[Rfam]
Overview: A member of the RNA family "Z30 small nucleolar RNA" from Merluccius polli, 104 nucleotides long. Pairs were carried over by alignment from the consensus structure, which was predicted with PFOLD. A reference for the family is Galardi et al. (2002), "Purified box C/D snoRNPs are able to reproduce site-specific 2'-O-methylation of target RNA in vitro", Mol Cell Biol. Rfam links the family to the GO terms nucleolus and RNA processing.
RNA sequence: CUGCAGUGAUGAUGAGAUGUUUCGGACCUGGCAUGGCUCCUUGCUCCCUCGCGGGGUGGCGCUCUGGCCAGGGAAUGACUUGAAUUAAUCUUCUCUCUGAGCAG
Numbered sequence: 001c002u003g004c005a006g007u008g009a010u011g012a013u014g015a016g017a018u019g020u021u022u023c024g025g026a027c028c029u030g031g032c033a034u035g036g037c038u039c040c041u042u043g044c045u046c047c048c049u050c051g052c053g054g055g056g057u058g059g060c061g062c063u064c065u066g067g068c069c070a071g072g073g074a075a076u077g078a079c080u081u082g083a084a085u086u087a088a089u090c091u092u093c094u095c096u097c098u099g100a101g102c103a104g
Stems, first nucleotide, its partner, number of pairs: 003102002036062002039059001